[Rfam]
RNA sequence: AGAUCGUGCCUUUCAGGCAUCCUCUCCCAAAACUUCAUGGCCCGGCGGGUUUUCCCUCCGGGCCUUUUUUUGUCCAGC
Numbered sequence: 001a002g003a004u005c006g007u008g009c010c011u012u013u014c015a016g017g018c019a020u021c022c023u024c025u026c027c028c029a030a031a032a033c034u035u036c037a038u039g040g041c042c043c044g045g046c047g048g049g050u051u052u053u054c055c056c057u058c059c060g061g062g063c064c065u066u067u068u069u070u071u072g073u074c075c076a077g078c
Stems, first nucleotide, its partner, number of pairs: 008018004040063006047056002
RNA: Makes More Granules Regulator RNA (mmgR)